Selenocysteine insertion sequence 1: a 63-nucleotide sequence from Drosophila melanogaster. By type it is a cis-regulatory element. Taxonomically the source falls in Sophophora (Eukaryota, Mandibulata, Neoptera, Diptera). About the family: The incorporation of selenocysteine into a protein sequence is directed by an in-frame UGA codon (usually a stop codon) within the coding region of the mRNA. Selenoprotein mRNAs contain a conserved secondary structure in the 3' UTR that is required for the distinction of UGA stop from UGA selenocysteine. The selenocysteine insertion sequence (SECIS) is around 60 nt in length and adopts a hairpin structure which is sufficiently well-defined and conserved to act as a computational screen for selenoprotein genes.

RNA sequence: UUCAACUUAUGAGGAUUAUUUCUUAAAGGCCUCUGGCUCGGAAAUAGUCUGAACCUUAUUGUA
Numbered sequence: 001u002u003c004a005a006c007u008u009a010u011g012a013g014g015a016u017u018a019u020u021u022c023u024u025a026a027a028g029g030c031c032u033c034u035g036g037c038u039c040g041g042a043a044a045u046a047g048u049c050u051g052a053a054c055c056u057u058a059u060u061g062u063a
Stems, first nucleotide, its partner, number of pairs: 001063001003061003014049010029037003